Rfam assigns this 141-nucleotide RNA from Mikania micrantha to the family "Small nucleolar RNA snoR145". The family has 19 seed sequences and 286 matches in Rfam 15.1.
RNA sequence: CAACGAAGGUUCCGACAGGGAGGUUGAUUAAUUCUUCUCUAACACUUUGUAUUUACCUUCAUAGAUUGAGUUGCGGAGUCGUACGACUGAUCAAAUUUCUCUUUAAUUUUGGUUUGUUCUUGAAAUCACGGCAAUAUUUUA
Numbered sequence: 001c002a003a004c005g006a007a008g009g010u011u012c013c014g015a016c017a018g019g020g021a022g023g024u025u026g027a028u029u030a031a032u033u034c035u036u037c038u039c040u041a042a043c044a045c046u047u048u049g050u051a052u053u054u055a056c057c058u059u060c061a062u063a064g065a066u067u068g069a070g071u072u073g074c075g076g077a078g079u080c081g082u083a084c085g086a087c088u089g090a091u092c093a094a095a096u097u098u099c100u101c102u103u104u105a106a107u108u109u110u111g112g113u114u115u116g117u118u119c120u121u122g123a124a125a126u127c128a129c130g131g132c133a134a135u136a137u138u139u140u141a
Stems, first nucleotide, its partner, number of pairs: 003062001005060005011020003026039002073132002076129001078127001085119002088116002090113006

Background
A search with the family's covariance model found it, with a score of 60 bits. The family's RNA type in Rfam is H/ACA-box small nucleolar RNA. Rfam links the family to the GO terms RNA processing and nucleolus. On this family, see Chen and Wu, Nucleic Acids Res 2009: "Mining small RNA sequencing data: a new approach to identify small nucleolar RNAs in Arabidopsis". Pairs were carried over by alignment from the consensus structure, which was predicted with mfold.